[Rfam]
A member of the RNA family "Insect-specific Flavivirus 3' UTR cis-acting replication element (CRE)" from Quang Binh virus, 82 nucleotides long. It is annotated as a cis-regulatory element. Flavi_ISFV_CRE is a Insect specific Flavivirus family. Flavivirus 3' UTR cis-acting replication element (CRE) plays a crucial role in the virus replication and is thought to be needed for the formation of a 'replication complex', it is composed of a small hairpin (sHP) and a larger structural element (3'SL). It has been shown that mutations in sHP are lethal for viruses. Pairs were carried over by alignment from the consensus structure, which was predicted with LocARNA.
RNA sequence: CCCCCGAAAUGUGUAUUGUGACAGGCUUGCUCGCAGCAGCAAAUCUCCACCGUUAGGAGAUUUGUUGUGAGCAUUGCUUGUC
Numbered sequence: 001c002c003c004c005c006g007a008a009a010u011g012u013g014u015a016u017u018g019u020g021a022c023a024g025g026c027u028u029g030c031u032c033g034c035a036g037c038a039g040c041a042a043a044u045c046u047c048c049a050c051c052g053u054u055a056g057g058a059g060a061u062u063u064g065u066u067g068u069g070a071g072c073a074u075u076g077c078u079u080g081u082c
Base pairs, nucleotide, nucleotide: 020082021081022080023079024078025077026076028073029072030071031070032069033068034067038066039065040064041063042062043061044060045059046058047057048056